Shown here is an 87-nucleotide RNA sequence from Domibacillus mangrovi, a member of the family "c-di-GMP-I riboswitch aptamer". A search with the family's covariance model found it, with a score of 86 bits. Pairs were carried over by alignment from the consensus structure, which is taken from published work. Lineage of the source: Bacteria > Bacillati > Bacillota > Caryophanales > Domibacillus.
RNA sequence: AAAAAUCAAAGGCAAACUAAUCGAAAGAUUGGGACGCAAAGCCACGGAUCUAAGGUUCUUAGCAACGAUGAUAGCCGGGUUGCAGAA
Numbered sequence: 001a002a003a004a005a006u007c008a009a010a011g012g013c014a015a016a017c018u019a020a021u022c023g024a025a026a027g028a029u030u031g032g033g034a035c036g037c038a039a040a041g042c043c044a045c046g047g048a049u050c051u052a053a054g055g056u057u058c059u060u061a062g063c064a065a066c067g068a069u070g071a072u073a074g075c076c077g078g079g080u081u082g083c084a085g086a087a
Stems, first nucleotide, its partner, number of pairs: 012037002017032006040081004045077003048072003055066003